[Rfam]
RNA: THF (Tetrahydrofolate) riboswitch aptamer
RNA sequence: GGCAGAGUAAGUAGUAUGCGUUAAGUGUUAGAAGAUGGGAAGUUGCUUCUAAACGAAGAUGAACAUCGCGUUAUACUGCUGCAUCCGCUGUU
Numbered sequence: 001g002g003c004a005g006a007g008u009a010a011g012u013a014g015u016a017u018g019c020g021u022u023a024a025g026u027g028u029u030a031g032a033a034g035a036u037g038g039g040a041a042g043u044u045g046c047u048u049c050u051a052a053a054c055g056a057a058g059a060u061g062a063a064c065a066u067c068g069c070g071u072u073a074u075a076c077u078g079c080u081g082c083a084u085c086c087g088c089u090g091u092u
Base pairs, nucleotide, nucleotide: 001092002091003090004089005088010080011079012078013077014076015075016074017073018072019070020069021068025054026053028052029051030050031049032048033047034046038086039085040084042082058067059066060065
Dot-bracket structure: (((((....((((((((((((...((.(((((((...[[[.[...)))))))))...(((....)))))).))))))))).].]]].)))))